[Rfam]
RNA sequence: UUUUAACUGCAUGACUGGCGGAAGUAGAUUAACUACAAGGGAGUGCAGUGUUUUAAAGCCGACCGCCUGGGCAAUUUUG
Numbered sequence: 001u002u003u004u005a006a007c008u009g010c011a012u013g014a015c016u017g018g019c020g021g022a023a024g025u026a027g028a029u030u031a032a033c034u035a036c037a038a039g040g041g042a043g044u045g046c047a048g049u050g051u052u053u054u055a056a057a058g059c060c061g062a063c064c065g066c067c068u069g070g071g072c073a074a075u076u077u078u079g
Base pairs, nucleotide, nucleotide: 006049007048008047009046010045011044012043015040016039017067018066019065020064021063024036025035026034027033058072059071060070
Dot-bracket structure: .....(((((((..(([[[[[..((((.....))))..))..)))))))........(((..]]]]]..))).......

Annotation:
Shown here is a 79-nucleotide RNA from Tyzzerella sp. An114, a member of the family "ZMP/ZTP riboswitch aptamer (pfl RNA motif)". The match comes from Rfam's covariance-model search (60 bits).